[Rfam]
RNA sequence: UUGUUUGCAUGACAGAAGAUAGAGAGCACCCUUGUAUACAUUCAUGAAACGGACAUGAUUGUGUGCAAGAGUGCCCUCUCUCUUCUGUCAUACGGUC
Numbered sequence: 001u002u003g004u005u006u007g008c009a010u011g012a013c014a015g016a017a018g019a020u021a022g023a024g025a026g027c028a029c030c031c032u033u034g035u036a037u038a039c040a041u042u043c044a045u046g047a048a049a050c051g052g053a054c055a056u057g058a059u060u061g062u063g064u065g066c067a068a069g070a071g072u073g074c075c076c077u078c079u080c081u082c083u084u085c086u087g088u089c090a091u092a093c094g095g096u097c
Stems, first nucleotide, its partner, number of pairs: 010090005017083002021079002024076001026074004031069005
RNA: MIR535 microRNA precursor family
Organism: Papaver nudicaule